[Rfam]
RNA sequence: GCCGAAGUGACGGAAUGGGAGACGUAGCGGACUCAAAAUCCGCCGAGGGUGAUUCCUCGUGAGGGUUCAACUCCCUCCUUCGGCA
Numbered sequence: 001g002c003c004g005a006a007g008u009g010a011c012g013g014a015a016u017g018g019g020a021g022a023c024g025u026a027g028c029g030g031a032c033u034c035a036a037a038a039u040c041c042g043c044c045g046a047g048g049g050u051g052a053u054u055c056c057u058c059g060u061g062a063g064g065g066u067u068c069a070a071c072u073c074c075c076u077c078c079u080u081c082g083g084c085a
Stems, first nucleotide, its partner, number of pairs: 001084007010025003027043005061077005